RNA Staph. aureus E (RoxS): a 102-nucleotide sequence from Rummeliibacillus sp. TYF005. Rfam links the family to the GO term regulation of translational initiation. A search with the family's covariance model found it, with a score of 89 bits. NCBI's taxonomy places the organism under Bacteria, Bacillota, Bacilli, Caryophanaceae, Rummeliibacillus. About the family: It was shown to be regulated by the presence of nitric oxide (NO). In Bacillus subtilis it controls expression of genes with functions related to oxidative stress and oxidation-reduction reactions and it was renamed RoxS (for related to oxidative stress). A reference for the family is Geissmann et al. (2009), "A search for small noncoding RNAs in Staphylococcus aureus reveals a conserved sequence motif for regulation", Nucleic Acids Res. Pairs were carried over by alignment from the consensus structure, which is taken from published work.
RNA sequence: GUGAAAUAAAUCACAAACAAACAUACACCCCUUUGUUUGAACGUGAACAUUUCUCCCAUCCCCUUUGUGAAAAGAAGCAUCUCCCGUAGAGGUGCUUCUUUU
Numbered sequence: 001g002u003g004a005a006a007u008a009a010a011u012c013a014c015a016a017a018c019a020a021a022c023a024u025a026c027a028c029c030c031c032u033u034u035g036u037u038u039g040a041a042c043g044u045g046a047a048c049a050u051u052u053c054u055c056c057c058a059u060c061c062c063c064u065u066u067g068u069g070a071a072a073a074g075a076a077g078c079a080u081c082u083c084c085c086g087u088a089g090a091g092g093u094g095c096u097u098c099u100u101u102u
Base pairs, nucleotide, nucleotide: 003053004052005051006050007049011046012045013044014043018039019038020037021036022035023034073099074098075097076096077095078094079093080092081091082090083089